[Rfam]
RNA sequence: AAGCCGUGGUGUGGGCAUUGGUUAGUGUAGCUUCUAAACCGUUCCCAAGCUUCAUUAAAGCUCUCGUUAUUGUGCUGCGUGAAACUUGAGAUCUGAUUCCUGAGCUU
Numbered sequence: 001a002a003g004c005c006g007u008g009g010u011g012u013g014g015g016c017a018u019u020g021g022u023u024a025g026u027g028u029a030g031c032u033u034c035u036a037a038a039c040c041g042u043u044c045c046c047a048a049g050c051u052u053c054a055u056u057a058a059a060g061c062u063c064u065c066g067u068u069a070u071u072g073u074g075c076u077g078c079g080u081g082a083a084a085c086u087u088g089a090g091a092u093c094u095g096a097u098u099c100c101u102g103a104g105c106u107u
Stems, first nucleotide, its partner, number of pairs: 001107001003105002005102002058073001060071001

The record is a 107-nucleotide RNA sequence from Eutrema salsugineum, which matches "Plant small nucleolar RNA R71" in Rfam. Lineage of the source: Eukaryota > Spermatophyta > rosids > Brassicales > Eutrema. On this family, see Brown et al., Trends Plant Sci 2003: "Plant snoRNAs: functional evolution and new modes of gene expression".